[Rfam]
RNA sequence: UGUCGCAAGGAUCGCCCCCUGUCAGCGCGUUGCGCCCACAGGGGUCAAACUG
Dot-bracket structure: ...............(((((((..((((...))))..)))))))........